RNA sequence: ACAUCGAUUGAUAAUACAACCUGAUAAGUGCUAGGACACUUAGCAGGUUGUAUUAUAUCCAUCCGAGUA
Numbered sequence: 001a002c003a004u005c006g007a008u009u010g011a012u013a014a015u016a017c018a019a020c021c022u023g024a025u026a027a028g029u030g031c032u033a034g035g036a037c038a039c040u041u042a043g044c045a046g047g048u049u050g051u052a053u054u055a056u057a058u059c060c061a062u063c064c065g066a067g068u069a
Stems, first nucleotide, its partner, number of pairs: 011056009021046003025042006
Dot-bracket structure: ..........(((((((((.(((.((((((......)))))).))).))))))))).............
RNA: mir-374 microRNA precursor family